[Rfam]
RNA: Purine riboswitch aptamer
Organism: Candidatus Atribacteria bacterium MT.SAG.1
RNA sequence: UAAAAUUAAAUAAUAGAAACUCGUAUAAACUCUUGAAUAUGGCAAGAGUGUUUCUACCAGGUGACCGUAAAUCACGACAGGCUACGAGUGGAAGUGCACCUUAG
Numbered sequence: 001u002a003a004a005a006u007u008a009a010a011u012a013a014u015a016g017a018a019a020c021u022c023g024u025a026u027a028a029a030c031u032c033u034u035g036a037a038u039a040u041g042g043c044a045a046g047a048g049u050g051u052u053u054c055u056a057c058c059a060g061g062u063g064a065c066c067g068u069a070a071a072u073c074a075c076g077a078c079a080g081g082c083u084a085c086g087a088g089u090g091g092a093a094g095u096g097c098a099c100c101u102u103a104g
Stems, first nucleotide, its partner, number of pairs: 019089007029049007058080001060078001061075004